This 135-nucleotide sequence from Ceratobasidium sp. AG-Ba belongs to the Rfam family "U4 spliceosomal RNA". U4 small nuclear RNA (U4 snRNA) is a component of the major U2-dependent spliceosome. Lineage of the source: Eukaryota > Dikarya > Basidiomycota > Agaricomycetes > Ceratobasidium. Rfam links the family to the GO terms spliceosomal tri-snRNP complex assembly and U4 snRNP.
RNA sequence: UCUCUUGUGCUCGGGCACGCGCUGACACCAGUGAGGUCUUUACCGAGGUUCAGCUAUUUGCUGGUUGCAAAUUAACUACCAAACCCGUCUCCUCCUCGUCAGAGGUUGAGCAAUUUUUGGCCAAAAACCGCUUUG
Numbered sequence: 001u002c003u004c005u006u007g008u009g010c011u012c013g014g015g016c017a018c019g020c021g022c023u024g025a026c027a028c029c030a031g032u033g034a035g036g037u038c039u040u041u042a043c044c045g046a047g048g049u050u051c052a053g054c055u056a057u058u059u060g061c062u063g064g065u066u067g068c069a070a071a072u073u074a075a076c077u078a079c080c081a082a083a084c085c086c087g088u089c090u091c092c093u094c095c096u097c098g099u100c101a102g103a104g105g106u107u108g109a110g111c112a113a114u115u116u117u118u119g120g121c122c123a124a125a126a127a128c129c130g131c132u133u134u135g
Stems, first nucleotide, its partner, number of pairs: 021054005027049003035044003087111001089110003094105004125134003
Dot-bracket structure: ....................(((((.(((.....(((....)))..))))))))................................(.(((..((((....))))..)))).............(((....))).